[Rfam]
RNA sequence: CAAGUAGAUUGCCUUAUCGCUGUUUCGAUUUAUCGAGAUGGAGGAAAGUCCGAACACCGUAGUGUAAUCAUAGUGGUUAACGACCACCAGUCGUGAGGCUAGGAAAAGUGCAACAGAAAGUAUGUACAGGUAAUGCUGUAGUGAAACCGGGUAAACUCUAUGUGGUGCAAUGUCAUGUAAACUAGUGUUUGAGCGUGCACGCGCGAUGCUAGAGGGUAGACAGCUAAAGUUUAUUAGUAAUAAUAAACGCAGAUAAAUGAUAAGGGGCAUUUUUUUAGAAAAAUGUACAGAAUUCGGCUUAUAAAUUUACUUGAUUA
Numbered sequence: 001c002a003a004g005u006a007g008a009u010u011g012c013c014u015u016a017u018c019g020c021u022g023u024u025u026c027g028a029u030u031u032a033u034c035g036a037g038a039u040g041g042a043g044g045a046a047a048g049u050c051c052g053a054a055c056a057c058c059g060u061a062g063u064g065u066a067a068u069c070a071u072a073g074u075g076g077u078u079a080a081c082g083a084c085c086a087c088c089a090g091u092c093g094u095g096a097g098g099c100u101a102g103g104a105a106a107a108g109u110g111c112a113a114c115a116g117a118a119a120g121u122a123u124g125u126a127c128a129g130g131u132a133a134u135g136c137u138g139u140a141g142u143g144a145a146a147c148c149g150g151g152u153a154a155a156c157u158c159u160a161u162g163u164g165g166u167g168c169a170a171u172g173u174c175a176u177g178u179a180a181a182c183u184a185g186u187g188u189u190u191g192a193g194c195g196u197g198c199a200c201g202c203g204c205g206a207u208g209c210u211a212g213a214g215g216g217u218a219g220a221c222a223g224c225u226a227a228a229g230u231u232u233a234u235u236a237g238u239a240a241u242a243a244u245a246a247a248c249g250c251a252g253a254u255a256a257a258u259g260a261u262a263a264g265g266g267g268c269a270u271u272u273u274u275u276u277a278g279a280a281a282a283a284u285g286u287a288c289a290g291a292a293u294u295c296g297g298c299u300u301a302u303a304a305a306u307u308u309a310c311u312u313g314a315u316u317a
Stems, first nucleotide, its partner, number of pairs: 001313010011302001012265007020041009046300003050297005055167004069162004073087005088102001089100004103158002108156002110152002171222004182212005193204004229248008